[Rfam]
RNA: U4 spliceosomal RNA
Organism: Saimiri boliviensis
RNA sequence: AACUUUGCAAAGUAGCAAUUGUUGUAGCCAAUGAGGUUUAUCUGAGGCACAAUUAUUGCUAAUUGAAAACUUUUCCCAGUACCUCUCUGUGACGACUUGCAAUAUAGUUGGCAUUGGCAAUUUUGACAGUCUCCACAGAGA
Number, nucleotide and partner (000 for none) at each position: 001a000002a000003c000004u000005u000006u000007g000008c000009a000010a000011a000012g000013u000014a000015g000016c000017a000018a000019u000020u000021g053022u052023u051024g050025u049026a000027g048028c047029c046030a000031a000032u000033g000034a000035g043036g042037u000038u000039u000040a000041u000042c036043u035044g000045a000046g029047g028048c027049a025050c024051a023052a022053u021054u000055a000056u000057u000058g000059c000060u000061a000062a000063u000064u000065g000066a000067a000068a000069a000070c000071u000072u000073u000074u000075c000076c000077c000078a000079g000080u000081a000082c000083c000084u000085c000086u117087c000088u116089g114090u113091g112092a000093c110094g109095a108096c107097u106098u000099g000100c000101a000102a000103u000104a000105u000106a097107g096108u095109u094110g093111g000112c091113a090114u089115u000116g088117g086118c000119a000120a000121u000122u000123u000124u000125g000126a000127c000128a000129g000130u141131c140132u139133c138134c000135a000136c000137a000138g133139a132140g131141a130